[Rfam]
Nucleotides: 071
Base pairs, nucleotide, nucleotide: 007064008063009062011060012059013058017054018053019052020051022049023048024047025046026045027044028043029042030041031040032039033038
Number, partner (000 for none) and nucleotide at each position: 001000c002000c003000g004000c005000g006000u007064c008063c009062a010000g011060c012059g013058g014000g015000g016000a017054a018053a019052c020051c021000g022049u023048u024047a025046c026045c027044a028043u029042u030041a031040c032039u033038g034000a035000g036000u037000u038033u039032a040031g041030u042029a043028a044027u045026g046025g047024u048023a049022g050000c051020g052019g053018u054017u055000c056000u057000g058013c059012u060011g061000c062009u063008g064007g065000g066000c067000g068000g069000g070000c071000g
The record is a 71-nucleotide RNA from Xiphorhynchus elegans, which matches "mir-451 microRNA precursor family" in Rfam. The match comes from Rfam's covariance-model search (73 bits). Its family is annotated with miRNA-mediated post-transcriptional gene silencing and RISC complex in the Gene Ontology. The family has 22 seed sequences and 658 matches in Rfam 15.1.